[Rfam]
RNA: pemK RNA
Nucleotides: 100
Stems, first nucleotide, its partner, number of pairs: 012097001013064006065083003069079003084096003
Number, partner (000 for none) and nucleotide at each position: 001000a002000u003000a004000a005000u006000g007000a008000u009000a010000c011000u012097u013064c014063c015062g016061c017060c018059a019000a020000g021000u022000c023000a024000a025000a026000a027000g028000u029000c030000g031000a032000g033000c034000g035000u036000g037000a038000u039000a040000a041000a042000c043000c044000c045000g046000u047000c048000g049000c050000a051000a052000c053000c054000a055000a056000a057000g058000a059018u060017g061016g062015c063014g064013g065083c066082c067081g068000u069079g070078g071077g072000a073000g074000a075000u076000c077071c078070u079069c080000a081067c082066g083065g084096u085095g086094g087000u088000g089000a090000a091000a092000u093000u094086c095085c096084a097012a098000u099000g100000a